Rfam assigns this 152-nucleotide sequence from Sphingomonas aliaeris to the family "caulobacter sRNA CC2171". The match comes from Rfam's covariance-model search (77 bits).
RNA sequence: CAACAACGGAAAGGAGGUGGUCCAAUGUCUCAUUGUCAAACGCCAUUGGCGACACUGAACGCGAGCAAGACCUUCCUGUCGGAGAGCGUCUCCGCGUAAGGAUUGUCGUCCAAGGCCGACAAUGGAAAGGCCGUCCCGAAAGGGGCGGCCUU
Numbered sequence: 001c002a003a004c005a006a007c008g009g010a011a012a013g014g015a016g017g018u019g020g021u022c023c024a025a026u027g028u029c030u031c032a033u034u035g036u037c038a039a040a041c042g043c044c045a046u047u048g049g050c051g052a053c054a055c056u057g058a059a060c061g062c063g064a065g066c067a068a069g070a071c072c073u074u075c076c077u078g079u080c081g082g083a084g085a086g087c088g089u090c091u092c093c094g095c096g097u098a099a100g101g102a103u104u105g106u107c108g109u110c111c112a113a114g115g116c117c118g119a120c121a122a123u124g125g126a127a128a129g130g131c132c133g134u135c136c137c138g139a140a141a142g143g144g145g146c147g148g149c150c151u152u
Stems, first nucleotide, its partner, number of pairs: 016023002031124007044057002047054002065095002067091001069090003072084004103113003127152011
Background: The family's RNA type in Rfam is small RNA. Pairs were carried over by alignment from the consensus structure, which was predicted with RNAalifold.